RNA sequence: GGUCCACCUUGGAGUUGUGUCCUGGGCUUGAUUGCCGGUGUCCUUGUUUGCACACUCAUGUGGUCCGAGA
Numbered sequence: 001g002g003u004c005c006a007c008c009u010u011g012g013a014g015u016u017g018u019g020u021c022c023u024g025g026g027c028u029u030g031a032u033u034g035c036c037g038g039u040g041u042c043c044u045u046g047u048u049u050g051c052a053c054a055c056u057c058a059u060g061u062g063g064u065c066c067g068a069g070a
Stems, first nucleotide, its partner, number of pairs: 001066002004063004017053004024043004
RNA: Trypanosomatid snoRNA TB9Cs2H1
Organism: Trypanosoma congolense